[Rfam]
A member of the RNA family "L17-Actino-Proteobacteria ribosomal protein leader" from Streptomyces sp. URHA0041, 55 nucleotides long.
RNA sequence: CGAGCUGGCAGCCGCCAGUUCGCACUGACACCGGUACCUGACACGGCCGGUGCAG
Numbered sequence: 001c002g003a004g005c006u007g008g009c010a011g012c013c014g015c016c017a018g019u020u021c022g023c024a025c026u027g028a029c030a031c032c033g034g035u036a037c038c039u040g041a042c043a044c045g046g047c048c049g050g051u052g053c054a055g
Stems, first nucleotide, its partner, number of pairs: 001022009025055003029052007
Source information
The literature on the family includes a 2020 paper in BMC Microbiol by Eckert and Weinberg, "Discovery of 20 novel ribosomal leader candidates in bacteria and archaea". NCBI's taxonomy places the organism under Bacteria, Bacillati, Actinomycetes, Streptomycetaceae, Streptomyces. The family's consensus secondary structure is taken from published work. Rfam classes the family as a cis-regulatory leader.